This 67-nucleotide RNA sequence from Shimwellia blattae belongs to the Rfam family "Salmonella enterica sRNA STnc40".
The source organism's lineage runs through Bacteria, Pseudomonadota, Gammaproteobacteria, Enterobacteriaceae and Shimwellia blattae.
It is annotated as a small RNA.

RNA sequence: ACAGUGCCAUGGCCGCCUGAAUUAAGGCCCGGCAACAGACAAAGGCGCAGCUUGCUGCGCCUUUUUU
Numbered sequence: 001a002c003a004g005u006g007c008c009a010u011g012g013c014c015g016c017c018u019g020a021a022u023u024a025a026g027g028c029c030c031g032g033c034a035a036c037a038g039a040c041a042a043a044g045g046c047g048c049a050g051c052u053u054g055c056u057g058c059g060c061c062u063u064u065u066u067u
Stems, first nucleotide, its partner, number of pairs: 002019003006013002041064010
Description
It scores 61 bits against the family's covariance model.